[Rfam]
RNA: mir-204 microRNA precursor family
RNA sequence: CUUGGCUCUGUGGCCUUCCCUUUGUCAUCCUAUGCCUGGGAGCUUCUAGGAGGCUGGGACGGUAAAGGGAAGCCUACAGGGCCGUGAG
Numbered sequence: 001c002u003u004g005g006c007u008c009u010g011u012g013g014c015c016u017u018c019c020c021u022u023u024g025u026c027a028u029c030c031u032a033u034g035c036c037u038g039g040g041a042g043c044u045u046c047u048a049g050g051a052g053g054c055u056g057g058g059a060c061g062g063u064a065a066a067g068g069g070a071a072g073c074c075u076a077c078a079g080g081g082c083c084g085u086g087a088g
Base pairs, nucleotide, nucleotide: 017070018069019068020067021066022065024063025062028059029058030057031056032055034054035053036052037051